Small nucleolar RNA R38: an 82-nucleotide sequence from Ailuropoda melanoleuca.
Rfam classes the family as a C/D-box small nucleolar RNA.
snoR38 is a C/D box small nucleolar RNA conserved across yeast, human, Arabidopsis and rice. It is encoded in the intron of elongation factor-1 gamma in both pombe and cerevisiae. snoR38 guides the methylation of 2'-O-ribose sites in 28S rRNA.
The family has 19 seed sequences and 2,295 matches in Rfam 15.1.
RNA sequence: CUGAGUCCAUGAUGAUCUAAAGUUAUCCCUGUCUGAAGGCAAAGAAAGGCCUUUCUGUGGAAUACGGAUGUCUGAAACUCAG
Numbered sequence: 001c002u003g004a005g006u007c008c009a010u011g012a013u014g015a016u017c018u019a020a021a022g023u024u025a026u027c028c029c030u031g032u033c034u035g036a037a038g039g040c041a042a043a044g045a046a047a048g049g050c051c052u053u054u055c056u057g058u059g060g061a062a063u064a065c066g067g068a069u070g071u072c073u074g075a076a077a078c079u080c081a082g
Stems, first nucleotide, its partner, number of pairs: 001082006
Pairs were carried over by alignment from the consensus structure, which was predicted with PFOLD. On this family, see Chen et al., Nucleic Acids Res 2003: "The high diversity of snoRNAs in plants: identification and comparative study of 120 snoRNA genes from Oryza sativa".